[Rfam]
RNA: MIR2086 microRNA precursor family
Organism: Arachis hypogaea
RNA sequence: UGCUUCCCUCAUUGUAUGUUUGAUACUUGUUGCUUGACUUCAGGGGGAAUCGAGCAGCAAGGGACAUGAAUGCAGAACUGCCAAUAG
Numbered sequence: 001u002g003c004u005u006c007c008c009u010c011a012u013u014g015u016a017u018g019u020u021u022g023a024u025a026c027u028u029g030u031u032g033c034u035u036g037a038c039u040u041c042a043g044g045g046g047g048a049a050u051c052g053a054g055c056a057g058c059a060a061g062g063g064a065c066a067u068g069a070a071u072g073c074a075g076a077a078c079u080g081c082c083a084a085u086a087g
Stems, first nucleotide, its partner, number of pairs: 004084002008080001014073004024063001026061001027057005032051001034049002038045002